[Rfam]
Description: Shown here is a 125-nucleotide RNA from Aotus nancymaae, a member of the family "U4atac minor spliceosomal RNA". Taxonomically the source falls in Aotus (Eukaryota, Chordata, Gnathostomata, Tetrapoda). It scores 89 bits against the family's covariance model. About the family: U4atac is an essential component of the minor U12-type spliceosome complex which is required for removal of the rarer class of eukaryotic introns (AT-AC, U12-type).
RNA sequence: UUCAUCCUUUUCUUGGGGUUGCGCCACUGUCCAAUGAGCGCAUAGUGAGGGCGGUGCUGCUAACCCUAAACAACACACUCGCAUCAACUACAGCUCUGCUUCACGUUGGGAAAAUUUUUGGAAAA
Numbered sequence: 001u002u003c004a005u006c007c008u009u010u011u012c013u014u015g016g017g018g019u020u021g022c023g024c025c026a027c028u029g030u031c032c033a034a035u036g037a038g039c040g041c042a043u044a045g046u047g048a049g050g051g052c053g054g055u056g057c058u059g060c061u062a063a064c065c066c067u068a069a070a071c072a073a074c075a076c077a078c079u080c081g082c083a084u085c086a087a088c089u090a091c092a093g094c095u096c097u098g099c100u101u102c103a104c105g106u107u108g109g110g111a112a113a114a115u116u117u118u119u120g121g122a123a124a125a
Stems, first nucleotide, its partner, number of pairs: 006018004021060003026055007038046002084109003089103001092100003